[Rfam]
RNA sequence: AGACCGCUCCCUUUUUGGGAGAAAGCCCAUACGGACAGGCGGGUCGAAUGCCGA
Numbered sequence: 001a002g003a004c005c006g007c008u009c010c011c012u013u014u015u016u017g018g019g020a021g022a023a024a025g026c027c028c029a030u031a032c033g034g035a036c037a038g039g040c041g042g043g044u045c046g047a048a049u050g051c052c053g054a
Base pairs, nucleotide, nucleotide: 002045003044004043005042007021008020009019010018011017
A member of the RNA family "Streptococcus sRNA SpF59 (ldcC RNA)", 54 nucleotides long. A reference for the family is Mann et al. (2012), "Control of virulence by small RNAs in Streptococcus pneumoniae", PLoS Pathog. Pairs were carried over by alignment from the consensus structure, which was predicted with mfold. It is annotated as a small RNA.